[Rfam]
RNA sequence: CAGAAAUGGAAGCUCCUUCCAGCCCAAAACAGUGUAUCCUUACUUUGAUCCCUUGUUUUGGACUGAAGGGAGCUCCUAAUUCUU
Numbered sequence: 001c002a003g004a005a006a007u008g009g010a011a012g013c014u015c016c017u018u019c020c021a022g023c024c025c026a027a028a029a030c031a032g033u034g035u036a037u038c039c040u041u042a043c044u045u046u047g048a049u050c051c052c053u054u055g056u057u058u059u060g061g062a063c064u065g066a067a068g069g070g071a072g073c074u075c076c077u078a079a080u081u082c083u084u
Stems, first nucleotide, its partner, number of pairs: 007078003011074008021064002024061005

The family of this 84-nucleotide RNA sequence from Nelumbo nucifera is "MIR319 microRNA precursor family". The family has 11 seed sequences and 168 matches in Rfam 15.1. Its family is annotated with miRNA-mediated post-transcriptional gene silencing and RISC complex in the Gene Ontology. The match comes from Rfam's covariance-model search (78 bits). The family's consensus secondary structure was predicted with RNAalifold. The source organism's lineage runs through Eukaryota, Streptophytina, Embryophyta, Magnoliopsida and Nelumbo.